[Rfam]
RNA: Connexin-43 internal ribosome entry site (IRES)
RNA sequence: ACUUUUUACGAGGUAUCAGCACUUUUCUUUCAUUAGUGGGUAAGGAAGGAUGAAAACUACAAAACAGCAGUAGACUUUUAAAGUUUAAAUAGACAGGUCUGAAAGCCUGAACUUGCUUUUCCACUUUAGCUCACUCUUCCAAAGAGGCACUUGUUUGCUUGCUUCACUGAUCAUCAGCAGGGGUAAGUUGGAAAGUUUUU
Numbered sequence: 001a002c003u004u005u006u007u008a009c010g011a012g013g014u015a016u017c018a019g020c021a022c023u024u025u026u027c028u029u030u031c032a033u034u035a036g037u038g039g040g041u042a043a044g045g046a047a048g049g050a051u052g053a054a055a056a057c058u059a060c061a062a063a064a065c066a067g068c069a070g071u072a073g074a075c076u077u078u079u080a081a082a083g084u085u086u087a088a089a090u091a092g093a094c095a096g097g098u099c100u101g102a103a104a105g106c107c108u109g110a111a112c113u114u115g116c117u118u119u120u121c122c123a124c125u126u127u128a129g130c131u132c133a134c135u136c137u138u139c140c141a142a143a144g145a146g147g148c149a150c151u152u153g154u155u156u157g158c159u160u161g162c163u164u165c166a167c168u169g170a171u172c173a174u175c176a177g178c179a180g181g182g183g184u185a186a187g188u189u190g191g192a193a194a195g196u197u198u199u200u
Base pairs, nucleotide, nucleotide: 003019004018007015008014009013029146030145031144033142034141036139038138039137040136041133043131044130049125051123052122055120056119072100073099074098075097076096077095101116103114104113105112149196150195151194152193155191156190157189159187162183163182164181167177168176169175